[Rfam]
RNA sequence: GUUGAAGAUAGAGGUCGCAACUAUCAAAGAGUAAUCCCUUGGAGCUUAGCAGGCUGUGAAGAUGGAUAAAAGGUGAGGUUGCCGAAGGAUGAUCCAGGCUAAAGGAGGCAUUCUGGGGGUAUAGAUAAUAUCUAUACAACUGUCACACGUGGUGUGGAGUACUAUCAGUUGA
Number, nucleotide and partner (000 for none) at each position: 001g000002u000003u000004g000005a000006a000007g166008a165009u164010a163011g162012a000013g000014g000015u000016c000017g082018c081019a080020a079021c078022u077023a000024u076025c075026a074027a000028a000029g000030a000031g000032u000033a000034a067035u066036c065037c064038c000039u062040u061041g000042g000043a000044g000045c000046u000047u000048a000049g000050c000051a000052g000053g000054c000055u000056g000057u000058g000059a000060a000061g040062a039063u000064g037065g036066a035067u034068a000069a000070a000071a000072g000073g000074u026075g025076a024077g022078g021079u020080u019081g018082c017083c000084g000085a000086a114087g113088g112089a111090u110091g109092a000093u107094c000095c105096a000097g000098g000099c000100u000101a000102a000103a000104g000105g095106a000107g093108g000109c091110a090111u089112u088113c087114u086115g141116g140117g000118g000119g137120u136121a135122u134123a133124g132125a131126u000127a000128a000129u000130a000131u125132c124133u123134a122135u121136a120137c119138a000139a000140c116141u115142g000143u157144c156145a155146c154147a153148c152149g000150u000151g000152g148153u147154g146155u145156g144157g143158a000159g000160u000161a000162c011163u010164a009165u008166c007167a000168g000169u000170u000171g000172a000